Small nucleolar RNA SNORD115: a 79-nucleotide RNA from Mesocricetus auratus. Pairs were carried over by alignment from the consensus structure, which was predicted with PFOLD. The source organism's lineage runs through Eukaryota, Eumetazoa, Bilateria, Teleostomi and Mesocricetus.
[Rfam]
RNA sequence: GGGUCUAUGAUGACAUACUAAUGUCCUGAAAAGUGCUGAUAACAUAUAAAUCAGCCUAAAUAGGAUAACACUGAAGCUC
Numbered sequence: 001g002g003g004u005c006u007a008u009g010a011u012g013a014c015a016u017a018c019u020a021a022u023g024u025c026c027u028g029a030a031a032a033g034u035g036c037u038g039a040u041a042a043c044a045u046a047u048a049a050a051u052c053a054g055c056c057u058a059a060a061u062a063g064g065a066u067a068a069c070a071c072u073g074a075a076g077c078u079c
Base pairs, nucleotide, nucleotide: 001079002078003077004076005073008070009069